[Rfam]
RNA sequence: ACAAACGCUAUGAAAAGAAGAGUAUGCAAAUUAUGAUAUUUACAGAGAACCUACAUAAGCUGAGAGUAGGAAUAAAGUAAUUGCUGAAGAUGGUCUUGGAGCGGUGUACCGAGGUAAAUUUUGCUUAGGCUACAACGGGUUUCGCCCGUUACAGUGAUAAAGUAUCUGUAUAAACACGUACUUGAUAAGGCUUAUAUUGUGAAGUAUAAGUAAAUUUAAGGUGGUAACACGAAGCGUACAUAUUUGCUCUCGUCCUUUUA
Number, nucleotide and partner (000 for none) at each position: 001a000002c000003a000004a000005a000006c000007g102008c101009u000010a000011u000012g000013a000014a000015a097016a096017g095018a094019a000020g000021a000022g000023u000024a000025u000026g084027c083028a082029a081030a000031u000032u000033a000034u000035g000036a000037u000038a000039u000040u072041u000042a000043c000044a000045g000046a000047g000048a000049a000050c070051c069052u068053a067054c066055a000056u000057a000058a000059g000060c000061u000062g000063a000064g000065a000066g054067u053068a052069g051070g050071a000072a040073u000074a000075a000076a000077g000078u000079a000080a000081u029082u028083g027084c026085u000086g000087a000088a000089g000090a000091u000092g000093g000094u018095c017096u016097u015098g000099g000100a000101g008102c007103g000104g000105u134106g133107u132108a131109c129110c128111g000112a000113g000114g000115u000116a000117a000118a000119u000120u000121u000122u000123g000124c000125u000126u000127a000128g110129g109130c000131u108132a107133c106134a105135a000136c148137g147138g146139g000140u000141u000142u000143c000144g000145c000146c138147c137148g136149u000150u000151a000152c000153a000154g000155u000156g000157a000158u000159a000160a000161a000162g000163u000164a000165u000166c000167u000168g000169u000170a000171u000172a000173a000174a000175c000176a000177c000178g000179u000180a000181c000182u000183u000184g000185a000186u000187a000188a000189g000190g211191c210192u209193u208194a207195u206196a205197u000198u000199g000200u000201g000202a000203a000204g000205u196206a195207u194208a193209a192210g191211u190212a000213a000214a000215u000216u000217u000218a257219a256220g255221g254222u000223g000224g000225u000226a000227a000228c000229a253230c252231g251232a250233a000234g000235c000236g000237u000238a000239c000240a000241u000242a000243u000244u000245u000246g000247c000248u000249c000250u232251c231252g230253u229254c221255c220256u219257u218258u000259u000260a000